UnaL2 LINE 3' element: a 54-nucleotide RNA sequence from Oncorhynchus mykiss. A search with the family's covariance model found it, with a score of 61 bits. About the family: The eel long interspersed element (LINE) UnaL2 and its partner short interspersed element (SINE) share a conserved 3' tail containing a stem-loop that is critical for their retrotransposition. Presumably, the first step of retrotransposition is the recognition of their 3' tails by UnaL2-encoded reverse transcriptase. The solution structure of a 17-nucleotide RNA derived from the 3' tail of UnaL2 was determined by NMR. On this family, see Baba et al., RNA 2004: "Solution structure of an RNA stem-loop derived from the 3' conserved region of eel LINE UnaL2".
RNA sequence: UGUAUGCACGACUGUAAAUCACUUUGGAUAAAAGUGUUUGCUAAAUGGCAUGUA
Number, nucleotide and partner (000 for none) at each position: 001u000002g000003u000004a000005u000006g000007c000008a000009c000010g000011a000012c000013u043014g041015u040016a039017a000018a000019u000020c036021a035022c034023u033024u032025u031026g000027g000028a000029u000030a000031a025032a024033a023034g022035u021036g020037u000038u000039u016040g015041c014042u000043a013044a000045a000046u000047g000048g000049c000050a000051u000052g000053u000054a000